RNA: SAM-Chlorobi RNA
Organism: Phoenicopterus ruber
RNA sequence: CUCUAUUCCAGCUGGGGUGGUGUGGGAUCUUCUGAGGUUCAACUCAAGAUCUUAUCCUAAUGGUUUUCAGUCUCCAA
Numbered sequence: 001c002u003c004u005a006u007u008c009c010a011g012c013u014g015g016g017g018u019g020g021u022g023u024g025g026g027a028u029c030u031u032c033u034g035a036g037g038u039u040c041a042a043c044u045c046a047a048g049a050u051c052u053u054a055u056c057c058u059a060a061u062g063g064u065u066u067u068c069a070g071u072c073u074c075c076a077a
Stems, first nucleotide, its partner, number of pairs: 001022001003020007023054008033046004